[Rfam]
RNA sequence: CCAGUUGACCGGGUGGCCGCUUCGCGCUUGCGGAGAGGAAAGUCCGGGCUCCAUCGAAACACGGUGCCGGAUAACGUCCGGCGGGGGCGACCCCAGGGAAAGUGCCACAGAAAGCAAACUACCCCGGCUCCGGCCGGGGAAAAGGUGAAAGGGUGCGGUAAGAGCGCACCGCGGACCCCGCAAGGGGGACGGCAUGGUAAACCCCACCGGGAGCAAGACCAAAUAGGGAUGACAUGGAGCUUCGGCUCCAGCCGGUUUCGUGGCCUGUCAUCCGGGUUGGUUGCUAGAGGGGUGCGGCAACGCACCUCCCAGAGGAAUGGCCGCCACGCGGGGGCAACCCCGCCCUACAGAACCCGGCUUAUAGGUCAACUGGCAUU
Numbered sequence: 001c002c003a004g005u006u007g008a009c010c011g012g013g014u015g016g017c018c019g020c021u022u023c024g025c026g027c028u029u030g031c032g033g034a035g036a037g038g039a040a041a042g043u044c045c046g047g048g049c050u051c052c053a054u055c056g057a058a059a060c061a062c063g064g065u066g067c068c069g070g071a072u073a074a075c076g077u078c079c080g081g082c083g084g085g086g087g088c089g090a091c092c093c094c095a096g097g098g099a100a101a102g103u104g105c106c107a108c109a110g111a112a113a114g115c116a117a118a119c120u121a122c123c124c125c126g127g128c129u130c131c132g133g134c135c136g137g138g139g140a141a142a143a144g145g146u147g148a149a150a151g152g153g154u155g156c157g158g159u160a161a162g163a164g165c166g167c168a169c170c171g172c173g174g175a176c177c178c179c180g181c182a183a184g185g186g187g188g189a190c191g192g193c194a195u196g197g198u199a200a201a202c203c204c205c206a207c208c209g210g211g212a213g214c215a216a217g218a219c220c221a222a223a224u225a226g227g228g229a230u231g232a233c234a235u236g237g238a239g240c241u242u243c244g245g246c247u248c249c250a251g252c253c254g255g256u257u258u259c260g261u262g263g264c265c266u267g268u269c270a271u272c273c274g275g276g277u278u279g280g281u282u283g284c285u286a287g288a289g290g291g292g293u294g295c296g297g298c299a300a301c302g303c304a305c306c307u308c309c310c311a312g313a314g315g316a317a318u319g320g321c322c323g324c325c326a327c328g329c330g331g332g333g334g335c336a337a338c339c340c341c342g343c344c345c346u347a348c349a350g351a352a353c354c355c356g357g358c359u360u361a362u363a364g365g366u367c368a369a370c371u372g373g374c375a376u377u
Stems, first nucleotide, its partner, number of pairs: 001373010011362001012325007020035006040360003044357005049213004058258002062209005067081005082096001083094004097204002102202002104198003119144002122139007152170006171193001172191002176187004217282004227273006251264004289308008

The family of this 377-nucleotide RNA from Paradevosia tibetensis is "Bacterial RNase P class A". The match comes from Rfam's covariance-model search (308 bits). By type it is a ribozyme.